[Rfam]
RNA sequence: UAAUGCUUGGCUUGCACAGAAUCAAUACCGCGGUUGAUUUCCUUUAAAUUGUGCUUAAGCUUUAUUU
Numbered sequence: 001u002a003a004u005g006c007u008u009g010g011c012u013u014g015c016a017c018a019g020a021a022u023c024a025a026u027a028c029c030g031c032g033g034u035u036g037a038u039u040u041c042c043u044u045u046a047a048a049u050u051g052u053g054c055u056u057a058a059g060c061u062u063u064a065u066u067u
Stems, first nucleotide, its partner, number of pairs: 002066002010060004014054005019040006
Oocyte entry signal (OES) from oskar mRNA: a 67-nucleotide RNA sequence from Drosophila grimshawi. The base pairs follow the family's consensus structure, which is taken from published work.